[Rfam]
RNA sequence: GCUGGUGUAGCUCAAUGUGGUAGAGCAAUUGACUUGUAAUCAGUAGGUUGCAGGUUCAACUCCUGUCACCAGCU
Numbered sequence: 001g002c003u004g005g006u007g008u009a010g011c012u013c014a015a016u017g018u019g020g021u022a023g024a025g026c027a028a029u030u031g032a033c034u035u036g037u038a039a040u041c042a043g044u045a046g047g048u049u050g051c052a053g054g055u056u057c058a059a060c061u062c063c064u065g066u067c068a069c070c071a072g073c074u
Stems, first nucleotide, its partner, number of pairs: 001073007010026004028044005050066005
tRNA: a 74-nucleotide RNA from Nostoc minutum. Gene Ontology term of the family: triplet codon-amino acid adaptor activity. Pairs were carried over by alignment from the consensus structure, which is taken from published work. A search with the family's covariance model found it, with a score of 72 bits.